This 54-nucleotide RNA from Oryza nivara belongs to the Rfam family "Plastid-atpF group II-D1 intron". The organism belongs to Oryza, within Eukaryota. Plastid atpF is a non-coding RNA (ncRNA) recognised in plastids. It has been reported in the intron group II-D1 region of ATP synthase (atpF) genes. It scores 53 bits against the family's covariance model.
[Rfam]
RNA sequence: UAGGUUUAAAUCUGAUAUAGAACACUCAUAUCGAUAAAAUGGUUUGAACUAUUU
Numbered sequence: 001u002a003g004g005u006u007u008a009a010a011u012c013u014g015a016u017a018u019a020g021a022a023c024a025c026u027c028a029u030a031u032c033g034a035u036a037a038a039a040u041g042g043u044u045u046g047a048a049c050u051a052u053u054u
Stems, first nucleotide, its partner, number of pairs: 011034002014032005